[Rfam]
RNA sequence: UUGGGGAAGUGGAGAAACAACACUUGCUAAAAUAACUUCCGUUUAUUUUCAAUAAUACUUAGUAGCUGUAUAAGCUUUGGAGUUAUUUUAGCAAGAGUUGUUUUCCCCCUUCUCUA
Numbered sequence: 001u002u003g004g005g006g007a008a009g010u011g012g013a014g015a016a017a018c019a020a021c022a023c024u025u026g027c028u029a030a031a032a033u034a035a036c037u038u039c040c041g042u043u044u045a046u047u048u049u050c051a052a053u054a055a056u057a058c059u060u061a062g063u064a065g066c067u068g069u070a071u072a073a074g075c076u077u078u079g080g081a082g083u084u085a086u087u088u089u090a091g092c093a094a095g096a097g098u099u100g101u102u103u104u105c106c107c108c109c110u111u112c113u114c115u116a
Base pairs, nucleotide, nucleotide: 003114004113005112007111008110009109011107012106014104015103016102017101018100019099020098021097023095024094025093026092027091028090029089030088031087032086033085034084035083037081038080039079
RNA: MIR6024 microRNA precursor family
Organism: Capsicum baccatum